[Rfam]
RNA: M-box riboswitch aptamer (ykoK leader)
Organism: Halarsenatibacter silvermanii
RNA sequence: UACAGUUCUUGUUAAGUGAGGCUCCUGAUCGAAAAGAUGCUGCUGCCCGGAAACGUCCAGAGACGCCAACGGGUAAAACAGGCCCACCCGGCAUAAGGGAGGUCCAAGGUAGCUGAUGGUGCAUAUGCCAUCUACGUCGGUCAGUGCUGAAUCCCUGACGAGGAGACGUUGA
Numbered sequence: 001u002a003c004a005g006u007u008c009u010u011g012u013u014a015a016g017u018g019a020g021g022c023u024c025c026u027g028a029u030c031g032a033a034a035a036g037a038u039g040c041u042g043c044u045g046c047c048c049g050g051a052a053a054c055g056u057c058c059a060g061a062g063a064c065g066c067c068a069a070c071g072g073g074u075a076a077a078a079c080a081g082g083c084c085c086a087c088c089c090g091g092c093a094u095a096a097g098g099g100a101g102g103u104c105c106a107a108g109g110u111a112g113c114u115g116a117u118g119g120u121g122c123a124u125a126u127g128c129c130a131u132c133u134a135c136g137u138c139g140g141u142c143a144g145u146g147c148u149g150a151a152u153c154c155c156u157g158a159c160g161a162g163g164a165g166a167c168g169u170u171g172a
Stems, first nucleotide, its partner, number of pairs: 007166004011159002013096001016153001020148003025144008039113005045074005054065004081104004087099003115132005